Rfam assigns this 72-nucleotide RNA sequence to the family "Hepatitis C virus stem-loop SL2531 and SL2549AU". The family's RNA type in Rfam is cis-regulatory element.

RNA sequence: UCCUGGCAGAUGCUCGCGUCUGCGCCUGCCUGUGGAUGAUGCUGAUGGUGGCCAAGGCUGAGGCUGCGCUGG
Numbered sequence: 001u002c003c004u005g006g007c008a009g010a011u012g013c014u015c016g017c018g019u020c021u022g023c024g025c026c027u028g029c030c031u032g033u034g035g036a037u038g039a040u041g042c043u044g045a046u047g048g049u050g051g052c053c054a055a056g057g058c059u060g061a062g063g064c065u066g067c068g069c070u071g072g
Base pairs, nucleotide, nucleotide: 006023007022008021009020010019011018012017024067025066028064029063030062031061034058037055

Pairs were carried over by alignment from the consensus structure, which was predicted with RNAfold. Rfam's curators put it in the seed alignment.